[Rfam]
RNA: Small nucleolar RNA SNORA3/SNORA45 family
RNA sequence: ACCGAGACUAGAGUCACAGCUGGAUACUGCCUGUUGUCCUGCUGUGCUGGAGUACUCGGAUAGUAACCACUGAUCUCUGUUCACUGGCUGUGGCCACGCUUGACUCAGCUAGUCACCAGGUUAGUGACAGGA
Number, nucleotide and partner (000 for none) at each position: 001a000002c059003c058004g057005a056006g055007a053008c052009u051010a000011g000012a048013g047014u000015c046016a045017c044018a043019g042020c041021u000022g000023g038024a037025u036026a035027c000028u000029g000030c000031c000032u000033g000034u000035u026036g025037u024038c023039c000040u000041g020042c019043u018044g017045u016046g015047c013048u012049g000050g000051a009052g008053u007054a000055c006056u005057c004058g003059g002060a000061u000062a000063g000064u000065a000066a000067c000068c000069a000070c124071u123072g122073a121074u120075c119076u118077c000078u000079g000080u000081u000082c000083a113084c112085u111086g110087g109088c000089u107090g106091u000092g104093g000094c102095c000096a000097c000098g000099c000100u000101u000102g094103a000104c092105u000106c090107a089108g000109c087110u086111a085112g084113u083114c000115a000116c000117c000118a076119g075120g074121u073122u072123a071124g070125u000126g000127a000128c000129a000130g000131g000132a000